Rfam assigns this 77-nucleotide sequence from Papaver nudicaule to the family "Plastid-psbM 3UTR RNA".
Taxonomically the source falls in Papaver (Eukaryota, Streptophytina, Tracheophyta, Magnoliopsida).
Rfam classes the family as a cis-regulatory element.
The literature on the family includes a 2023 paper in Plant Commun by Richter et al., "Retrograde signaling in plants: A critical review focusing on the GUN pathway and beyond".

RNA sequence: GAUCCGGUAGUAUGGUAGAAAUAAAUCGAUUUGUUUCUACCAUACUUUCUAUUAUUCUAUUAUCUAAAAUUGUAAUG
Numbered sequence: 001g002a003u004c005c006g007g008u009a010g011u012a013u014g015g016u017a018g019a020a021a022u023a024a025a026u027c028g029a030u031u032u033g034u035u036u037c038u039a040c041c042a043u044a045c046u047u048u049c050u051a052u053u054a055u056u057c058u059a060u061u062a063u064c065u066a067a068a069a070u071u072g073u074a075a076u077g
Stems, first nucleotide, its partner, number of pairs: 006049002009046017

It scores 62 bits against the family's covariance model.
Rfam's curators write: Plastid psbM is a non-coding RNA (ncRNA) recognised in plastids. It was found in the three prime untranslated region (3UTR) of psbM gene, its 3UTR location suggests a role in transcript maturation.